[Rfam]
RNA sequence: CUGCAUUAACGAUAGAAGUGGCAUCCUUUUUUGAGGCACAAAAAAAAGAUAUAACGGAUAGCGUGACCUUUU
Numbered sequence: 001c002u003g004c005a006u007u008a009a010c011g012a013u014a015g016a017a018g019u020g021g022c023a024u025c026c027u028u029u030u031u032u033g034a035g036g037c038a039c040a041a042a043a044a045a046a047a048g049a050u051a052u053a054a055c056g057g058a059u060a061g062c063g064u065g066a067c068c069u070u071u072u
Stems, first nucleotide, its partner, number of pairs: 009064003013060002018055002023050003029045004
RNA: Flavo-1 RNA
Organism: Mariniflexile fucanivorans